cspA thermoregulator: a 439-nucleotide RNA from Providencia rettgeri. Taxonomically the source falls in Providencia rettgeri (Bacteria, Pseudomonadota, Enterobacterales, Providencia). A reference for the family is Giuliodori et al. (2010), "The cspA mRNA is a thermosensor that modulates translation of the cold-shock protein CspA", Mol Cell.
RNA sequence: ACUGGUUUGGAAGUACAGGCCUAUUUAUGUUAGUCAGUUUUAAGAUGUUCACCAUUAAGCGUUAUCUCAGAUACCACUUCAUUGCGAAUUCCUUCUAAUUAAUUCCCAUAAGUACCACAAGAACAAACCGCAACAUGCCUUAUGGCAAUUUUAAAAAAUUAAAGGAAAUUCUAUGUCUAAUACAAUGACUGGUACAGUAAAAUGGUUUAACGAUGAUAAAGGUUUUGGUUUUAUCACUCCUGCAGACGGCAGCAAAGAUGUAUUUGUUCACUUUUCUGCAAUUCAAAGUGAUAACUUCAAAUCAUUAGCAGAAGGCCAACAAGUUUCAUUCACCAUUGAAAAUGGUGCUAAAGGCCCAGCAGCAGCUAACGUUAUCGCUAAAUAACGAUAAACGAAUCGCUAAGCAUUCAAAAACCUCGCUAAAUGCGAGGUUUUUUCG
Numbered sequence: 001a002c003u004g005g006u007u008u009g010g011a012a013g014u015a016c017a018g019g020c021c022u023a024u025u026u027a028u029g030u031u032a033g034u035c036a037g038u039u040u041u042a043a044g045a046u047g048u049u050c051a052c053c054a055u056u057a058a059g060c061g062u063u064a065u066c067u068c069a070g071a072u073a074c075c076a077c078u079u080c081a082u083u084g085c086g087a088a089u090u091c092c093u094u095c096u097a098a099u100u101a102a103u104u105c106c107c108a109u110a111a112g113u114a115c116c117a118c119a120a121g122a123a124c125a126a127a128c129c130g131c132a133a134c135a136u137g138c139c140u141u142a143u144g145g146c147a148a149u150u151u152u153a154a155a156a157a158a159u160u161a162a163a164g165g166a167a168a169u170u171c172u173a174u175g176u177c178u179a180a181u182a183c184a185a186u187g188a189c190u191g192g193u194a195c196a197g198u199a200a201a202a203u204g205g206u207u208u209a210a211c212g213a214u215g216a217u218a219a220a221g222g223u224u225u226u227g228g229u230u231u232u233a234u235c236a237c238u239c240c241u242g243c244a245g246a247c248g249g250c251a252g253c254a255a256a257g258a259u260g261u262a263u264u265u266g267u268u269c270a271c272u273u274u275u276c277u278g279c280a281a282u283u284c285a286a287a288g289u290g291a292u293a294a295c296u297u298c299a300a301a302u303c304a305u306u307a308g309c310a311g312a313a314g315g316c317c318a319a320c321a322a323g324u325u326u327c328a329u330u331c332a333c334c335a336u337u338g339a340a341a342a343u344g345g346u347g348c349u350a351a352a353g354g355c356c357c358a359g360c361a362g363c364a365g366c367u368a369a370c371g372u373u374a375u376c377g378c379u380a381a382a383u384a385a386c387g388a389u390a391a392a393c394g395a396a397u398c399g400c401u402a403a404g405c406a407u408u409c410a411a412a413a414a415c416c417u418c419g420c421u422a423a424a425u426g427c428g429a430g431g432u433u434u435u436u437u438c439g
Stems, first nucleotide, its partner, number of pairs: 004021006029240001032238003043232002047230001049228002052222002055219001061217004066212001070208002073206003080175003084171001091165004096161003103123003137146003177192003181188001245337002248334002257265002270324004277318002279315001283308001285306002290303003343358003347355003359379001362378001365376001367374001383402002386399004410436011